Source information:
Shown here is a 333-nucleotide RNA sequence from Aminithiophilus ramosus, a member of the family "Bacterial RNase P class A". The source organism's lineage runs through Bacteria, Thermotogati, Synergistota, Synergistales and Aminithiophilus. The literature on the family includes a 1998 paper in Annu Rev Biochem by Frank and Pace, "Ribonuclease P: unity and diversity in a tRNA processing ribozyme". From the family's description: Ribonuclease P (RNase P) is a ubiquitous endoribonuclease, found in archaea, bacteria and eukarya as well as chloroplasts and mitochondria. Its best characterised activity is the generation of mature 5'-ends of tRNAs by cleaving the 5'-leader elements of precursor-tRNAs. Cellular RNase Ps are ribonucleoproteins. The family's RNA type in Rfam is ribozyme. A search with the family's covariance model found it, with a score of 281 bits.

RNA sequence: GGAGUAUCACAGGCAGCCGCUGCCCGUCAGGGGAGAGGAAAGUCCGGGCUCCGCAGGGCGGAGCGCUGGGUAACGCCCAGCAGGUGUGAACCUGGGAAAGUGCCACAGAAACAUACCGCCGGUUCAGGCCGGUAAGGGUGAAAAGGUGAGGUAAGAGCUCACCAGCCGUCGGGUGACCGUCGGGCUAGGCAAACCCCGCUCGGAGCAAGACCGAAUAGGGGGGGAUGAAGCGGCCCGCUGACCCCCGGGUACGGUCGCUUGAGGCUGCGCGAGAGCGCAGUCCUAGAUAAAUGGCUGUCGCAUACAGGACCCGGCUUACGGGAUACUCCCUCU
Number, nucleotide and partner (000 for none) at each position: 001g329002g328003a327004g326005u325006a324007u323008c322009a000010c320011a000012g299013g298014c297015a296016g295017c294018c293019g000020c035021u034022g000023c032024c031025c030026g000027u000028c000029a000030g025031g024032g023033g000034a021035g020036a000037g000038g000039a000040a317041a316042g315043u000044c314045c313046g312047g311048g310049c205050u204051c203052c202053g000054c000055a000056g236057g235058g234059c233060g000061g201062a200063g199064c198065g197066c080067u079068g078069g077070g076071u000072a000073a000074c000075g000076c070077c069078c068079a067080g066081c094082a093083g092084g091085u090086g000087u000088g000089a000090a085091c084092c083093u082094g081095g196096g195097a000098a000099a000100g194101u193102g190103c189104c188105a000106c000107a000108g000109a000110a000111a000112c000113a000114u000115a000116c137117c136118g133119c132120c131121g130122g129123u128124u000125c000126a000127g000128g123129c122130c121131g120132g119133u118134a000135a000136g117137g116138g000139u000140g000141a000142a000143a000144a000145g163146g162147u161148g160149a159150g158151g000152u000153a000154a000155g000156a000157g000158c150159u149160c148161a147162c146163c145164a000165g185166c183167c182168g181169u000170c179171g178172g177173g000174u000175g000176a000177c172178c171179g170180u000181c168182g167183g166184g000185c165186u000187a000188g104189g103190c102191a000192a000193a101194c100195c096196c095197c065198g064199c063200u062201c061202g052203g051204a050205g049206c000207a000208a000209g256210a255211c254212c253213g000214a000215a000216u000217a000218g000219g246220g245221g244222g243223g242224g000225a000226u000227g000228a000229a239230g238231c237232g000233g059234c058235c057236c056237g231238c230239u229240g000241a000242c223243c222244c221245c220246c219247g000248g000249g000250u000251a000252c000253g212254g211255u210256c209257g000258c000259u000260u000261g000262a000263g282264g281265c280266u279267g278268c277269g276270c275271g000272a000273g000274a000275g270276c269277g268278c267279a266280g265281u264282c263283c000284u000285a000286g000287a000288u000289a000290a000291a000292u000293g018294g017295c016296u015297g014298u013299c012300g000301c000302a000303u000304a000305c000306a000307g000308g000309a000310c048311c047312c046313g045314g044315c042316u041317u040318a000319c000320g010321g000322g008323a007324u006325a005326c004327u003328c002329c001330c000331u000332c000333u000